[Rfam]
This 53-nucleotide RNA from Natronobacterium gregoryi belongs to the Rfam family "leuA-Halobacteria RNA".
By type it is a cis-regulatory element.
NCBI's taxonomy places the organism under Archaea, Methanobacteriota, Halobacteria, Halobacteriales, Natronobacterium gregoryi.
The sequence is in the family's curated seed alignment.

RNA sequence: GCCUGACGAGGAUAGAGGAAGUCGGGGCGACCCGGCUGGGCGCGAAAUUCCGC
Numbered sequence: 001g002c003c004u005g006a007c008g009a010g011g012a013u014a015g016a017g018g019a020a021g022u023c024g025g026g027g028c029g030a031c032c033c034g035g036c037u038g039g040g041c042g043c044g045a046a047a048u049u050c051c052g053c
Base pairs, nucleotide, nucleotide: 020037021036022035023034024033025032026031